[Rfam]
Source information:
This 117-nucleotide sequence from Caloramator australicus belongs to the Rfam family "Molybdenum/Tungsten riboswitch aptamer (Moco RNA motif)". The organism belongs to Caloramator australicus, within Bacteria.

Nucleotides: 117
Base pairs, nucleotide, nucleotide: 003111011103012102013101014100015099016098019054020053021052022051023050024049025048026047027046028045029044033041034040035039060085061084062083063082064081065080066079067078068077069076070075086094087093
Number, partner (000 for none) and nucleotide at each position: 001000u002000a003111u004000a005000a006000a007000a008000g009000a010000a011103u012102u013101c014100u015099c016098c017000g018000a019054g020053u021052c022051u023050u024049a025048a026047g027046g028045c029044c030000u031000a032000a033041g034040g035039c036000a037000a038000g039035g040034c041033u042000a043000u044029g045028g046027c047026c048025u049024u050023a051022a052021g053020a054019c055000c056000g057000a058000u059000a060085g061084g062083g063082u064081a065080g066079a067078g068077u069076u070075g071000g072000a073000a074000a075070c076069g077068g078067c079066u080065c081064u082063g083062c084061c085060u086094c087093c088000u089000c090000u091000u092000u093087g094086g095000a096000a097000a098016g099015g100014a101013g102012a103011a104000u105000a106000u107000u108000a109000g110000g111003a112000u113000a114000g115000u116000a117000u